This 109-nucleotide RNA from Bacillus subtilis belongs to the Rfam family "Bacillus sRNA ncr1175". Rfam classes the family as a small RNA.

RNA sequence: AGGCCGGCGCGAUACUCCCUAUAACAUCCUUUUCAGUAGAUUUCAAUAUCGUGCCGGCUUUUUCAUAUGCAAAAUAACCCCGCCAUUCUGAUUGAUGGCGGGGUUUGAU
Dot-bracket structure: ((((((((((((((....((((.............)))).......))))))))))))))...............((((((((((((......))))))))))))....
Numbered sequence: 001a002g003g004c005c006g007g008c009g010c011g012a013u014a015c016u017c018c019c020u021a022u023a024a025c026a027u028c029c030u031u032u033u034c035a036g037u038a039g040a041u042u043u044c045a046a047u048a049u050c051g052u053g054c055c056g057g058c059u060u061u062u063u064c065a066u067a068u069g070c071a072a073a074a075u076a077a078c079c080c081c082g083c084c085a086u087u088c089u090g091a092u093u094g095a096u097g098g099c100g101g102g103g104u105u106u107g108a109u
Stems, first nucleotide, its partner, number of pairs: 001060014019039004076105012
The family's consensus secondary structure is taken from published work. The sequence is in the family's curated seed alignment. Taxonomically the source falls in Bacillus subtilis (Bacteria, Bacillati, Bacillota, Bacillaceae). The literature on the family includes a 2010 paper in Nucleic Acids Res by Irnov et al., "Identification of regulatory RNAs in Bacillus subtilis".